[Rfam]
RNA sequence: GGAUUAAUGCUAAUCGUGAUAGGGGUUUUGUAUUACUGAACACCUAUGCUGUUAGCAUUAGUCC
Numbered sequence: 001g002g003a004u005u006a007a008u009g010c011u012a013a014u015c016g017u018g019a020u021a022g023g024g025g026u027u028u029u030g031u032a033u034u035a036c037u038g039a040a041c042a043c044c045u046a047u048g049c050u051g052u053u054a055g056c057a058u059u060a061g062u063c064c
Stems, first nucleotide, its partner, number of pairs: 004061011020046004025041003
RNA: mir-155 microRNA precursor family
Organism: Carassius auratus